[Rfam]
RNA sequence: GGAAUAUAAGAACCCGUCUCUUAACUUUUAACUAAAAAAACUAAGAAUUUAAGAACCGGUUCUUAGUUUUUUUAGUUAAAAAUUAAGAAACAGGUUCUUAUAUUCC
Numbered sequence: 001g002g003a004a005u006a007u008a009a010g011a012a013c014c015c016g017u018c019u020c021u022u023a024a025c026u027u028u029u030a031a032c033u034a035a036a037a038a039a040a041c042u043a044a045g046a047a048u049u050u051a052a053g054a055a056c057c058g059g060u061u062c063u064u065a066g067u068u069u070u071u072u073u074a075g076u077u078a079a080a081a082a083u084u085a086a087g088a089a090a091c092a093g094g095u096u097c098u099u100a101u102a103u104u105c106c
Stems, first nucleotide, its partner, number of pairs: 001106014016091002019088006026081014041066007
RNA: MIR9563 microRNA precursor family